Alpha operon ribosome binding site: a 108-nucleotide RNA from Fulvimarina pelagi. NCBI's taxonomy places the organism under Bacteria, Pseudomonadati, Alphaproteobacteria, Aurantimonadaceae, Fulvimarina pelagi. It scores 42 bits against the family's covariance model. About the family: The bacterial alpha operon ribosome binding site is surrounded by this complex pseudoknotted structure. Translation of the mRNA produces 4 ribosomal protein products, one of which (S4) acts as a translational repressor by binding to the nested pseudoknot region. The mechanism of repression is thought to involve a conformational switch in the pseudoknot region and ribosome entrapment.
RNA sequence: ACUUCGGUCGCUUUUGGCCGUAACGUUUCGGGCAUCGAAAAGCGGCCGACAACCAUCAAGUUUAGGAGUGACGACGUGGCACGUAUCGCUGGCGUCAAUAUCCCGACG
Numbered sequence: 001a002c003u004u005c006g007g008u009c010g011c012u013u014u015u016g017g018c019c020g021u022a023a024c025g026u027u028u029c030g031g032g033c034a035u036c037g038a039a040a041a042g043c044g045g046c047c048g049a050c051a052a053c054c055a056u057c058a059a060g061u062u063u064a065g066g067a068g069u070g071a072c073g074a075c076g077u078g079g080c081a082c083g084u085a086u087c088g089c090u091g092g093c094g095u096c097a098a099u100a101u102c103c104c105g106a107c108g
Stems, first nucleotide, its partner, number of pairs: 004049010024092001029083002032080001037107001